Source information
A member of the RNA family "Bacterial large signal recognition particle RNA" from Lawsonibacter faecis, 265 nucleotides long. A search with the family's covariance model found it, with a score of 189 bits. Pairs were carried over by alignment from the consensus structure, which is taken from published work. A reference for the family is Rosenblad et al. (2009), "Kinship in the SRP RNA family", RNA Biol. The source organism's lineage runs through Bacteria, Bacillati, Eubacteriales, Oscillospiraceae and Lawsonibacter. By type it is a non-coding RNA gene.
[Rfam]
RNA sequence: CCGCACUAGUCGGGGAGUUAGCGGUGCCCUGUACCUGCAACCCGCUGCAGCAGGGAUGAAUCCCGGCCCCCGGACUUCGGCUGUGUUGUCUGCCCCCUAUAAGCGGCGAUGAGGAAUCGGUCCCGCGCAACGGGGCCCCGCGAACCGUGUCAGGCGGGGAACCGAGCAGCACUAAACGGAAUGCCCCGUGUGCCGUGGGGUUCCCGUUUCCGAGCUGGCUGUAAGGGUUACGGACAUAGCGGAAGCUUCAAAGGCCGGUGUGCGG
Dot-bracket structure: ((((((..(((((((.(((...))).))))...(((((...........)))))))).....((((((...(((((.(.((((((((...((..((.(((..(((((.....((((.(((.((((((((.(((((..(((......((((....(((....)))....))))....)))....)))))))...))))))....))).))))..))).)).))).))..))..)))))))).).)).)))...)))))).))))))